[Rfam]
RNA sequence: CAAUAUAGUAGAGGCGCGGGAUUAAUGAUUAAGCAGGCUGAUGCAUGUGGAUGCAGAAGAUGCCUGACGAAAGGGAAGACCGCCGAAGUGAUGGAUAUUCCACAGGAUCUGUUGCUGGUUGUGCAGUUAAGAACUGUAUGACUGUCAUCUGAGGAUGGAGAGCUACUUGUAAG
Number, nucleotide and partner (000 for none) at each position: 001c000002a000003a000004u000005a000006u000007a167008g166009u165010a164011g163012a000013g000014g000015c000016g083017c082018g081019g080020g000021a000022u077023u076024a000025a000026u000027g000028a000029u000030u000031a000032a000033g000034c066035a065036g064037g063038c062039u000040g000041a000042u000043g000044c000045a000046u000047g000048u000049g000050g000051a000052u000053g000054c000055a000056g000057a000058a000059g000060a000061u000062g038063c037064c036065u035066g034067a000068c000069g000070a000071a000072a000073g000074g000075g000076a023077a022078g000079a000080c019081c018082g017083c016084c000085g000086a000087a116088g115089u114090g113091a112092u111093g110094g109095a108096u107097a000098u105099u000100c000101c000102a000103c000104a000105g098106g000107a096108u095109c094110u093111g092112u091113u090114g089115c088116u087117g143118g142119u141120u140121g139122u138123g137124c136125a135126g134127u133128u000129a000130a000131g000132a000133a127134c126135u125136g124137u123138a122139u121140g120141a119142c118143u117144g000145u158146c157147a156148u155149c154150u000151g000152a000153g000154g149155a148156u147157g146158g145159a000160g000161a000162g000163c011164u010165a009166c008167u007168u000169g000170u000171a000172a000173g000
RNA: Lysine riboswitch aptamer